Bacillaceae-1 RNA: a 67-nucleotide sequence from Domibacillus mangrovi.

[Rfam]
RNA sequence: UAGCGGGAAACGCAGACUAAGAUCGUCACGUCCUGUGACAACGUCUGCAUCAUUCACAUCCUGUGAA
Numbered sequence: 001u002a003g004c005g006g007g008a009a010a011c012g013c014a015g016a017c018u019a020a021g022a023u024c025g026u027c028a029c030g031u032c033c034u035g036u037g038a039c040a041a042c043g044u045c046u047g048c049a050u051c052a053u054u055c056a057c058a059u060c061c062u063g064u065g066a067a
Stems, first nucleotide, its partner, number of pairs: 012048006025039005053067005
It is annotated as a small RNA.